[Rfam]
RNA: Bacterial large subunit ribosomal RNA, nucleotides 1909 to 2495
RNA sequence: CCCGCGGUCAGACGGAAAGACCCCGUGCACCUUUACUACAGCUUCACAGUGGCAUCAGAUAUUGGAUGUGUAGGAUAGGCGGGAGGCUAUGAAACCAGGGCGCCAGCCCAGGCGGAGCCACCCUUGAAAUACCGCCCUUCCCGUAUUUGAUGUCUAACCGCGUCCCGUAAGCCGGGACCGGGACCCUGUGUGGCGGGUAGUUUGACUGGGGCGGUCGCCUCCCAAAGAGUAACGGAGGCGCGCAAUGGUUGGCUCAGAGCGGUCGGAAAUCGCUCGACGAGUGCAAGAGCAAAAGCCAGCCUGACUGCGACACCGACGGGUGGAGCAGAGACGAAAGUCGGUUCUAGUGAUCCGGUGGUCCCUCGUGGAAGGGCCAUCGCUCAACGGAUAAAAGGUACGCCGGGGAUAACAGGCUGAUACUUCCCAAGAGUCCACAUCGACGGAAGUGUUUGGCACCUCGAUGUCGGCUCAUCUCAUCCUGGGGCUGGAGCAGGUCCCAAGGGUAUGGCUGUUCGCCAUUUAAAGAGGUACGUGAGCUGGGUUUAGAACGUCGUGAGACAGUUCGGUCCCUAUCUGCCGUGGGUGUA
Numbered sequence: 001c002c003c004g005c006g007g008u009c010a011g012a013c014g015g016a017a018a019g020a021c022c023c024c025g026u027g028c029a030c031c032u033u034u035a036c037u038a039c040a041g042c043u044u045c046a047c048a049g050u051g052g053c054a055u056c057a058g059a060u061a062u063u064g065g066a067u068g069u070g071u072a073g074g075a076u077a078g079g080c081g082g083g084a085g086g087c088u089a090u091g092a093a094a095c096c097a098g099g100g101c102g103c104c105a106g107c108c109c110a111g112g113c114g115g116a117g118c119c120a121c122c123c124u125u126g127a128a129a130u131a132c133c134g135c136c137c138u139u140c141c142c143g144u145a146u147u148u149g150a151u152g153u154c155u156a157a158c159c160g161c162g163u164c165c166c167g168u169a170a171g172c173c174g175g176g177a178c179c180g181g182g183a184c185c186c187u188g189u190g191u192g193g194c195g196g197g198u199a200g201u202u203u204g205a206c207u208g209g210g211g212c213g214g215u216c217g218c219c220u221c222c223c224a225a226a227g228a229g230u231a232a233c234g235g236a237g238g239c240g241c242g243c244a245a246u247g248g249u250u251g252g253c254u255c256a257g258a259g260c261g262g263u264c265g266g267a268a269a270u271c272g273c274u275c276g277a278c279g280a281g282u283g284c285a286a287g288a289g290c291a292a293a294a295g296c297c298a299g300c301c302u303g304a305c306u307g308c309g310a311c312a313c314c315g316a317c318g319g320g321u322g323g324a325g326c327a328g329a330g331a332c333g334a335a336a337g338u339c340g341g342u343u344c345u346a347g348u349g350a351u352c353c354g355g356u357g358g359u360c361c362c363u364c365g366u367g368g369a370a371g372g373g374c375c376a377u378c379g380c381u382c383a384a385c386g387g388a389u390a391a392a393a394g395g396u397a398c399g400c401c402g403g404g405g406a407u408a409a410c411a412g413g414c415u416g417a418u419a420c421u422u423c424c425c426a427a428g429a430g431u432c433c434a435c436a437u438c439g440a441c442g443g444a445a446g447u448g449u450u451u452g453g454c455a456c457c458u459c460g461a462u463g464u465c466g467g468c469u470c471a472u473c474u475c476a477u478c479c480u481g482g483g484g485c486u487g488g489a490g491c492a493g494g495u496c497c498c499a500a501g502g503g504u505a506u507g508g509c510u511g512u513u514c515g516c517c518a519u520u521u522a523a524a525g526a527g528g529u530a531c532g533u534g535a536g537c538u539g540g541g542u543u544u545a546g547a548a549c550g551u552c553g554u555g556a557g558a559c560a561g562u563u564c565g566g567u568c569c570c571u572a573u574c575u576g577c578c579g580u581g582g583g584u585g586u587a
Stems, first nucleotide, its partner, number of pairs: 001583008010575003014570002022404004027400002029396005035201004042193002045190004051154012064141003068137001078136005085119003095112002098109004158181003162178006204216004217239006240385001242342002248300006254280002257275006281290002305328004311322003330339003353379007361372002413454003417451001418448007428438002465540001466538004470532001471529005478503002481498006505519005546564004550559003